[Rfam]
Nucleotides: 104
Base pairs, nucleotide, nucleotide: 012025014023015022040087041086042085043084044083050077051076052075054071
Number, partner (000 for none) and nucleotide at each position: 001000a002000a003000a004000g005000g006000a007000a008000g009000g010000a011000a012025g013000c014023a015022u016000g017000a018000c019000u020000a021000u022015g023014u024000a025012c026000a027000c028000g029000a030000a031000a032000a033000c034000u035000a036000a037000u038000c039000c040087g041086g042085g043084u044083c045000g046000u047000c048000a049000u050077g051076u052075c053000u054071g055000c056000c057000c058000c059000c060000u061000c062000u063000g064000a065000c066000u067000c068000g069000a070000a071054u072000c073000u074000u075052g076051a077050u078000u079000u080000g081000g082000g083044g084043g085042c086041c087040u088000g089000g090000a091000u092000u093000a094000u095000a096000c097000c098000c099000a100000c101000a102000c103000c104000c
Rfam assigns this 104-nucleotide RNA sequence from Apium graveolens to the family "Small nucleolar RNA snoR100". The family's RNA type in Rfam is H/ACA-box small nucleolar RNA. Taxonomically the source falls in Apium (Eukaryota, Embryophyta, Gunneridae, Apiineae). For this family Rfam cites "Experimental RNomics: identification of 140 candidates for small non-messenger RNAs in the plant Arabidopsis thaliana" (Marker et al., Curr Biol, 2002).